[Rfam]
RNA sequence: CUAAUCAGUUGUUGUAUUCGACUGUAUUCACGGCGUGAAAUAGGGGAUUACACUGUUUUUAAAAUGGAUGAAUCAAUUAACAUAAUAGACUUCU
Numbered sequence: 001c002u003a004a005u006c007a008g009u010u011g012u013u014g015u016a017u018u019c020g021a022c023u024g025u026a027u028u029c030a031c032g033g034c035g036u037g038a039a040a041u042a043g044g045g046g047a048u049u050a051c052a053c054u055g056u057u058u059u060u061a062a063a064a065u066g067g068a069u070g071a072a073u074c075a076a077u078u079a080a081c082a083u084a085a086u087a088g089a090c091u092u093c094u
Base pairs, nucleotide, nucleotide: 003092004091009088010087011086012085013084014083015082017080018079020078021077023075024074026073027072028071029070030069034066035065036064037059038058039057040056041055042054043053
RNA: MIR6152 microRNA precursor family
Organism: Nicotiana sylvestris